[Rfam]
RNA sequence: AUAUGCCAGACAAAGUAGAGAAAUCGAAAUCAGUGCCAGAGUGGAAGGAAGGAGCAAAUAACCCUCGCCGUCAAGGCGUAAAUAAGAGCCCAGACGCUACCGGGUGGACGCUGCUUGCAUGGCGCGGAGUUUGUGCGAGUUCUCCGCGUUUCAUACCCGUUGUACUAUGCGGCUAAUUAAACGCAUGACAGCCGUGCUGGGUAAUAACAAAGGAAUGAGUUGAA
Numbered sequence: 001a002u003a004u005g006c007c008a009g010a011c012a013a014a015g016u017a018g019a020g021a022a023a024u025c026g027a028a029a030u031c032a033g034u035g036c037c038a039g040a041g042u043g044g045a046a047g048g049a050a051g052g053a054g055c056a057a058a059u060a061a062c063c064c065u066c067g068c069c070g071u072c073a074a075g076g077c078g079u080a081a082a083u084a085a086g087a088g089c090c091c092a093g094a095c096g097c098u099a100c101c102g103g104g105u106g107g108a109c110g111c112u113g114c115u116u117g118c119a120u121g122g123c124g125c126g127g128a129g130u131u132u133g134u135g136c137g138a139g140u141u142c143u144c145c146g147c148g149u150u151u152c153a154u155a156c157c158c159g160u161u162g163u164a165c166u167a168u169g170c171g172g173c174u175a176a177u178u179a180a181a182c183g184c185a186u187g188a189c190a191g192c193c194g195u196g197c198u199g200g201g202u203a204a205u206a207a208c209a210a211a212g213g214a215a216u217g218a219g220u221u222g223a224a
Base pairs, nucleotide, nucleotide: 005036006035019024066078067077068076069075088202089201090200091199092198093197095196096165098164099163100162101159102158103157104156105155110118111117121150122149123148124147125146126145127144128143129142169195170194171193172192173191

The record is a 224-nucleotide RNA, which matches "RT-2 RNA" in Rfam.